Background:
Shown here is a 124-nucleotide sequence from Moraxella nonliquefaciens, a member of the family "Histidine operon leader". Rfam's curators write: At least 6 amino acid operons are known to be regulated by attenuation. In each a leader sequence of 150-200 bp is found upstream of the first gene in the operon. The family's consensus secondary structure is taken from published work. For this family Rfam cites "Attenuation in amino acid biosynthetic operons" (Kolter and Yanofsky, Annu Rev Genet, 1982). Its family is annotated with histidine biosynthetic process in the Gene Ontology. The match comes from Rfam's covariance-model search (57 bits).
RNA sequence: CCAUCAUCACCAUCACCCCUAAGACUCUUUUGGGCGUGUGGUUUUGCUUGAAAGAAAAAGACUUUCAAGGCGAUAACACAAAGACAGCAUCAACCCUUGAAAGCGAUUUCAGGGGUUUUUAUUU
Numbered sequence: 001c002c003a004u005c006a007u008c009a010c011c012a013u014c015a016c017c018c019c020u021a022a023g024a025c026u027c028u029u030u031u032g033g034g035c036g037u038g039u040g041g042u043u044u045u046g047c048u049u050g051a052a053a054g055a056a057a058a059a060g061a062c063u064u065u066c067a068a069g070g071c072g073a074u075a076a077c078a079c080a081a082a083g084a085c086a087g088c089a090u091c092a093a094c095c096c097u098u099g100a101a102a103g104c105g106a107u108u109u110c111a112g113g114g115g116u117u118u119u120u121a122u123u124u
Stems, first nucleotide, its partner, number of pairs: 008046002011041001014038001017034003021030001047069008089120001092117011